Shown here is a 72-nucleotide RNA from Danionella cerebrum, a member of the family "mir-27 microRNA precursor family". Rfam 15.1 lists 1,440 matches to the family in 645 species. A search with the family's covariance model found it, with a score of 55 bits. On this family, see Chen et al., Genes Dev 2005: "The developmental miRNA profiles of zebrafish as determined by small RNA cloning".
[Rfam]
RNA sequence: UGUGGUGCCGGGACUUAACUCGCUCGUGAGCAAUGCAUUCAGUGUUCACAGUGGUUAAGUUCUGCCAUUCUA
Numbered sequence: 001u002g003u004g005g006u007g008c009c010g011g012g013a014c015u016u017a018a019c020u021c022g023c024u025c026g027u028g029a030g031c032a033a034u035g036c037a038u039u040c041a042g043u044g045u046u047c048a049c050a051g052u053g054g055u056u057a058a059g060u061u062c063u064g065c066c067a068u069u070c071u072a
Stems, first nucleotide, its partner, number of pairs: 011062010026049007